[Rfam]
RNA sequence: GCUUUCCCCCAGGUUGUGACUGGGUGAUAAGCGAAGCCUGAACUGGUGCCAGCCGGUUCAGGCUUCUUUCAUUUUUAAGU
Numbered sequence: 001g002c003u004u005u006c007c008c009c010c011a012g013g014u015u016g017u018g019a020c021u022g023g024g025u026g027a028u029a030a031g032c033g034a035a036g037c038c039u040g041a042a043c044u045g046g047u048g049c050c051a052g053c054c055g056g057u058u059c060a061g062g063c064u065u066c067u068u069u070c071a072u073u074u075u076u077a078a079g080u
Stems, first nucleotide, its partner, number of pairs: 001032003006026001008024005034065014
A member of the RNA family "ctRNA" from Corynebacterium doosanense, 80 nucleotides long. From the family's description: Rolling circle replication plasmids contain a number of mechanisms to maintain a low copy number. One of these methods is to transcribe a small RNA called ctRNA (for counter-transcribed RNA) than is transcribed on the opposite strand to RepB the replication initiation protein. ctRNA binds to the mRNA of repB and causes translational inhibition. Lineage of the source: Bacteria > Bacillati > Actinomycetota > Corynebacteriaceae > Corynebacterium doosanense. For this family Rfam cites "Control of rep gene expression in plasmid pGA1 from Corynebacterium glutamicum" (Venkova-Canova et al., J Bacteriol, 2003).